A member of the RNA family "Small nucleolar RNA snR8" from Nakaseomyces glabratus, 192 nucleotides long. Gene Ontology terms of the family: nucleolus and RNA processing. Lineage of the source: Eukaryota > Fungi > Dikarya > Saccharomycetales > Nakaseomyces. By type it is an H/ACA-box small nucleolar RNA. Its Rfam clan is "SNORA56 clan".
RNA sequence: AUACGAAAUAUUUAAAUGCCUUCUAUUCACUGUGCCAUCUUUUUCAAGUAGUUAGAUGAUCAGAGGGGAAAAGAAGCGCUAGAUCAAAUUUUUCGAAUGAGCGUCCUCAUACUGUUCAUGGUAAUUCGUUUGCUUAGAGACACAUCUAUUCAUAAUUUGGCCAUGAUCGGUAACUGCGCGAUUUGAACAUUA
Numbered sequence: 001a002u003a004c005g006a007a008a009u010a011u012u013u014a015a016a017u018g019c020c021u022u023c024u025a026u027u028c029a030c031u032g033u034g035c036c037a038u039c040u041u042u043u044u045c046a047a048g049u050a051g052u053u054a055g056a057u058g059a060u061c062a063g064a065g066g067g068g069a070a071a072a073g074a075a076g077c078g079c080u081a082g083a084u085c086a087a088a089u090u091u092u093u094c095g096a097a098u099g100a101g102c103g104u105c106c107u108c109a110u111a112c113u114g115u116u117c118a119u120g121g122u123a124a125u126u127c128g129u130u131u132g133c134u135u136a137g138a139g140a141c142a143c144a145u146c147u148a149u150u151c152a153u154a155a156u157u158u159g160g161c162c163a164u165g166a167u168c169g170g171u172a173a174c175u176g177c178g179c180g181a182u183u184u185g186a187a188c189a190u191u192a
Stems, first nucleotide, its partner, number of pairs: 018079002021075002030065002033062002036058005096184002101179003112170003116166007124158001137146002